[Rfam]
Shown here is an 86-nucleotide RNA from Panagrolaimus sp. JU765, a member of the family "Selenocysteine transfer RNA".
The organism belongs to Panagrolaimus, within Eukaryota.

RNA sequence: GCCCGAAUGAACUGCGGUGGUCCGUGGAACAGGCUUCAAACCUGUUGACGCUUAGCGGCGUAGUGGUUCGAUUCCACCUUUCGGGU
Numbered sequence: 001g002c003c004c005g006a007a008u009g010a011a012c013u014g015c016g017g018u019g020g021u022c023c024g025u026g027g028a029a030c031a032g033g034c035u036u037c038a039a040a041c042c043u044g045u046u047g048a049c050g051c052u053u054a055g056c057g058g059c060g061u062a063g064u065g066g067u068u069c070g071a072u073u074c075c076a077c078c079u080u081u082c083g084g085g086u
Stems, first nucleotide, its partner, number of pairs: 001086007009078001012027006028046006048061005063077004